Background
Shown here is a 92-nucleotide sequence from Striga asiatica, a member of the family "Small nucleolar RNA R44/J54/Z268 family". NCBI's taxonomy places the organism under Eukaryota, Streptophyta, Spermatophyta, eudicotyledons, Striga. Its family is annotated with nucleolus and RNA processing in the Gene Ontology.

RNA sequence: UUGGCAUAUGAUGAUAAAAUAGACAGGGACAUCAGAGCUCCCCUUUGGGAGAAAAGGAUGACUUAGUCUAAUGGGAAUCUCUCUGAUGCCUA
Number, nucleotide and partner (000 for none) at each position: 001u000002u000003g090004g089005c088006a087007u000008a000009u000010g000011a000012u000013g000014a000015u000016a000017a000018a000019a000020u000021a000022g000023a000024c000025a000026g000027g000028g000029a000030c000031a000032u000033c000034a000035g000036a000037g000038c000039u000040c000041c000042c000043c000044u000045u000046u000047g000048g000049g000050a000051g000052a000053a000054a000055a000056g000057g000058a000059u000060g000061a000062c000063u000064u000065a000066g000067u000068c000069u000070a000071a000072u000073g000074g000075g000076a000077a000078u000079c000080u000081c000082u000083c000084u000085g000086a000087u006088g005089c004090c003091u000092a000

The match comes from Rfam's covariance-model search (86 bits). Pairs were carried over by alignment from the consensus structure, which was predicted with PFOLD.